[Rfam]
RNA sequence: AAAAAGUGUUUCUGUCACAAGAGGCACACGUAGGACAGCUCUUGUUCUUUGCAGAAUCAACAUCAAGAGAUUUUGGAAGUAUAAUUUUUUGGUUCUUGGGUAGCUGGUGCUUGUUGGUCCUGGCACCCUU
Numbered sequence: 001a002a003a004a005a006g007u008g009u010u011u012c013u014g015u016c017a018c019a020a021g022a023g024g025c026a027c028a029c030g031u032a033g034g035a036c037a038g039c040u041c042u043u044g045u046u047c048u049u050u051g052c053a054g055a056a057u058c059a060a061c062a063u064c065a066a067g068a069g070a071u072u073u074u075g076g077a078a079g080u081a082u083a084a085u086u087u088u089u090u091g092g093u094u095c096u097u098g099g100g101u102a103g104c105u106g107g108u109g110c111u112u113g114u115u116g117g118u119c120c121u122g123g124c125a126c127c128c129u130u
Base pairs, nucleotide, nucleotide: 008080009079010078011077012076013026014025015024016023027051028050032048033047034046035045036044037043052075053074054073055072056071057070058069098128099127100126101125103124104123105122106121107120109119111117112116
About this RNA: U11 spliceosomal RNA: a 130-nucleotide sequence from Cervus hanglu. Its Rfam clan is "U1 clan". Gene Ontology terms of the family: U11 snRNP, mRNA 5'-splice site recognition and pre-mRNA 5'-splice site binding. The family has 72 seed sequences and 2,595 matches in Rfam 15.1.